[Rfam]
RNA sequence: AGGAACAGAAGAGGAGCGUUAACUAGGUAGUCAAUCAGAGGAGCACAAACUCCAGCGAUGAUUGAUGAGGGAGAUUAGCGCCGAGGCAUAGAUGUGGUUGCUGCAUGUUUAUGUCGGUCGCUUAGGCUGAAUCCUAACGAUUGUCACCUGUAAUUGGUGGAGAGCUUCUGGUGAC
Numbered sequence: 001a002g003g004a005a006c007a008g009a010a011g012a013g014g015a016g017c018g019u020u021a022a023c024u025a026g027g028u029a030g031u032c033a034a035u036c037a038g039a040g041g042a043g044c045a046c047a048a049a050c051u052c053c054a055g056c057g058a059u060g061a062u063u064g065a066u067g068a069g070g071g072a073g074a075u076u077a078g079c080g081c082c083g084a085g086g087c088a089u090a091g092a093u094g095u096g097g098u099u100g101c102u103g104c105a106u107g108u109u110u111a112u113g114u115c116g117g118u119c120g121c122u123u124a125g126g127c128u129g130a131a132u133c134c135u136a137a138c139g140a141u142u143g144u145c146a147c148c149u150g151u152a153a154u155u156g157g158u159g160g161a162g163a164g165c166u167u168c169u170g171g172u173g174a175c
Stems, first nucleotide, its partner, number of pairs: 006170006016081007024073001030066008085115012116142004122137005144160005150154001
Dot-bracket structure: .....((((((....(((((((.(.....((((((((.....................))))))))......).)))))))...((((((((((((.......))))))))))))((((..(((((......))))).)))).(((((.(...).)))))....)))))).....